Shown here is a 529-nucleotide part of an RNA from Thermofilum pendens, a member of the family "Archaeal small subunit ribosomal RNA". Rfam links the family to the GO terms structural constituent of ribosome and ribosome. The sequence is in the family's curated seed alignment.
RNA sequence: ACUCCGGUUGAUCCUGCCGGACCCGACCGCUAUCGGGGUGGGGCUAACCCAUGGAAGUCUAGGAGCCGGGGCUACGGCCGGCUCCGGCGGACGGCUCAGUAGCACGUGGCUAACCUACCCUCGGGAGGGGGAUAACCCCGGGAAACUGGGGAUAAACCCCCAUAGGCGCGGACACCUGGAAUGGGUCCGCGCUGAAAGGGCCACGGUACCAUGCUUACCGUGGCCGCCCGAGGAUGGGGCUGCGCCCUAUCAGGUAGUUGGCGGGGUAACGGCCCGCCAAGCCGAUAACGGGUGGGGGCCGUGAGAGCGGGAGCCCCGAGAUGGGCACUGAGACAAGGGCCCAGGCCCUACGGGGUGCACCAGGGGCGAAACUUCCGCAAUGCGGGAAACCGUGACGGAGUCACCCCGAGUGCCACCCGAAGAGGGUGGCUUUUGCCCGGUCUAAAAAGCCGGGCGAAUAAGCGGGGGGCAAGCUUGGUGUCAGCCGCCGCGGUAAUACCAACCCCGCGAGUGGUCGGGACGUUUAUUG
Numbered sequence: 001a002c003u004c005c006g007g008u009u010g011a012u013c014c015u016g017c018c019g020g021a022c023c024c025g026a027c028c029g030c031u032a033u034c035g036g037g038g039u040g041g042g043g044c045u046a047a048c049c050c051a052u053g054g055a056a057g058u059c060u061a062g063g064a065g066c067c068g069g070g071g072c073u074a075c076g077g078c079c080g081g082c083u084c085c086g087g088c089g090g091a092c093g094g095c096u097c098a099g100u101a102g103c104a105c106g107u108g109g110c111u112a113a114c115c116u117a118c119c120c121u122c123g124g125g126a127g128g129g130g131g132a133u134a135a136c137c138c139c140g141g142g143a144a145a146c147u148g149g150g151g152a153u154a155a156a157c158c159c160c161c162a163u164a165g166g167c168g169c170g171g172a173c174a175c176c177u178g179g180a181a182u183g184g185g186u187c188c189g190c191g192c193u194g195a196a197a198g199g200g201c202c203a204c205g206g207u208a209c210c211a212u213g214c215u216u217a218c219c220g221u222g223g224c225c226g227c228c229c230g231a232g233g234a235u236g237g238g239g240c241u242g243c244g245c246c247c248u249a250u251c252a253g254g255u256a257g258u259u260g261g262c263g264g265g266g267u268a269a270c271g272g273c274c275c276g277c278c279a280a281g282c283c284g285a286u287a288a289c290g291g292g293u294g295g296g297g298g299c300c301g302u303g304a305g306a307g308c309g310g311g312a313g314c315c316c317c318g319a320g321a322u323g324g325g326c327a328c329u330g331a332g333a334c335a336a337g338g339g340c341c342c343a344g345g346c347c348c349u350a351c352g353g354g355g356u357g358c359a360c361c362a363g364g365g366g367c368g369a370a371a372c373u374u375c376c377g378c379a380a381u382g383c384g385g386g387a388a389a390c391c392g393u394g395a396c397g398g399a400g401u402c403a404c405c406c407c408g409a410g411u412g413c414c415a416c417c418c419g420a421a422g423a424g425g426g427u428g429g430c431u432u433u434u435g436c437c438c439g440g441u442c443u444a445a446a447a448a449g450c451c452g453g454g455c456g457a458a459u460a461a462g463c464g465g466g467g468g469g470c471a472a473g474c475u476u477g478g479u480g481u482c483a484g485c486c487g488c489c490g491c492g493g494u495a496a497u498a499c500c501a502a503c504c505c506c507g508c509g510a511g512u513g514g515u516c517g518g519g520a521c522g523u524u525u526a527u528u529g
Base pairs, nucleotide, nucleotide: 004020005019006018007017008016022519023518024517025516026515027514028513029512030511031510033409034408035407036406037405038404039403040402041401042367048365049364050363052362053361054360057088058087059086062085063084064083065082066081067080068079095320096319097318105244106243107242108241109240110239111238114237115236119233120232121231122230123229124228125227127161128160129159130158136151137150138149139148140147141146166192167191168190169189170188171187172186173185175184176183199225200224201223202222203221204220205219206218207217208216246292247291248290253283254282255281258280259279260278261277262276263275264274265273295317296316297315298314299310300309301308302307322343323342324341325340326339345356346355347354348353373399375398376397377396381394382393383392384391385390412430413429414428415427416426417425418424435455436454437453438452439451440450441449462508463507464506465505466504467503475502476501477500478499484491485490